[Rfam]
RNA: Plastid-psbA-3 3UTR RNA
RNA sequence: AAAAGGAGCAAUAGCUUUUCUCUUGUUUUAUCAAGAGAGUGUUAUUGCUCCUUUUUUUAUU
Numbered sequence: 001a002a003a004a005g006g007a008g009c010a011a012u013a014g015c016u017u018u019u020c021u022c023u024u025g026u027u028u029u030a031u032c033a034a035g036a037g038a039g040u041g042u043u044a045u046u047g048c049u050c051c052u053u054u055u056u057u058u059a060u061u
Base pairs, nucleotide, nucleotide: 002054003053004052005051006050007049008048009047010046011045012044013043014042015041020037021036022035023034024033025032